This 225-nucleotide sequence from Sorangium cellulosum belongs to the Rfam family "Group II catalytic intron D1-D4-6". It scores 106 bits against the family's covariance model. The source organism's lineage runs through Bacteria, Polyangia, Polyangiales, Sorangium and Sorangium cellulosum. Group II introns are found in rRNA, tRNA and mRNA of organelles in fungi, plants and protists, and also in mRNA in bacteria.
Nucleotides: 225
Base pairs, nucleotide, nucleotide: 011038012037013036014035015034019032020031021030022029024192025191027190041090042089043088046085047084048083049081050080051076052075054073055072056071057070058069059068060067061066111219115216116215117214119212120211135210136209137208138207139206140205141167142166143165146161147160148159149158172204173203174202175201176200177199180197181196182195183194
Number, partner (000 for none) and nucleotide at each position: 001000c002000g003000a004000a005000u006000c007000c008000c009000g010000c011038c012037c013036g014035g015034c016000c017000a018000a019032g020031g021030u022029c023000a024192c025191g026000c027190c028000c029022g030021a031020c032019c033000a034015g035014c036013c037012g038011g039000a040000a041090g042089c043088c044000a045000a046085c047084c048083u049081u050080g051076c052075g053000a054073c055072g056071g057070a058069c059068c060067c061066c062000g063000u064000g065000a066061g067060g068059g069058g070057u071056u072055c073054g074000g075052c076051g077000a078000u079000g080050c081049g082000u083048a084047g085046g086000c087000a088043g089042g090041u091000g092000a093000g094000u095000g096000a097000g098000c099000g100000a101000g102000c103000c104000g105000c106000a107000g108000c109000g110000u111219g112000c113000c114000a115216g116215c117214c118000a119212c120211g121000a122000a123000a124000u125000u126000c127000u128000c129000c130000a131000a132000c133000g134000u135210c136209c137208g138207g139206g140205u141167g142166c143165c144000c145000a146161g147160g148159g149158c150000g151000u152000u153000c154000u155000c156000c157000c158149g159148c160147c161146u162000g163000a164000a165143g166142g167141c168000a169000a170000c171000a172204g173203c174202g175201u176200c177199c178000u179000a180197c181196c182195u183194c184000g185000c186000a187000a188000g189000g190027g191025c192024g193000g194183g195182a196181g197180g198000g199177g200176g201175a202174c203173g204172c205140a206139c207138c208137c209136g210135g211120c212119g213000g214117g215116g216115u217000a218000g219111c220000u221000g222000g223000c224000u225000g